[Rfam]
RNA sequence: UGCCUCUGUUUCCUGGGAAGUAGACUCAGCUCUCUCCAUCUUCCCCUAACUAGGCCUACAGAACAGGGACUGACUCUGGUGUAGGAGAGGUAUUUAAGAAAGGAGCUUCACCUGGGCUGUCUCAGCCUCACAUUU
Numbered sequence: 001u002g003c004c005u006c007u008g009u010u011u012c013c014u015g016g017g018a019a020g021u022a023g024a025c026u027c028a029g030c031u032c033u034c035u036c037c038a039u040c041u042u043c044c045c046c047u048a049a050c051u052a053g054g055c056c057u058a059c060a061g062a063a064c065a066g067g068g069a070c071u072g073a074c075u076c077u078g079g080u081g082u083a084g085g086a087g088a089g090g091u092a093u094u095u096a097a098g099a100a101a102g103g104a105g106c107u108u109c110a111c112c113u114g115g116g117c118u119g120u121c122u123c124a125g126c127c128u129c130a131c132a133u134u135u
Stems, first nucleotide, its partner, number of pairs: 002056001004054002015044004020039002023036002066129003070125001072123002075116003083108003
Rfam assigns this 135-nucleotide RNA from Octodon degus to the family "Small Cajal body specific RNA 21".
The base pairs follow the family's consensus structure, which was predicted with RNAalifold.
The organism belongs to Octodon, within Eukaryota.
It scores 77 bits against the family's covariance model.
Rfam's curators write: scaRNAs are a specific class of small nuclear RNAs which localise to the Cajal bodies and guide the modification of RNA polymerase II transcribed spliceosomal RNAs U1, U2, U4, U5 and U12.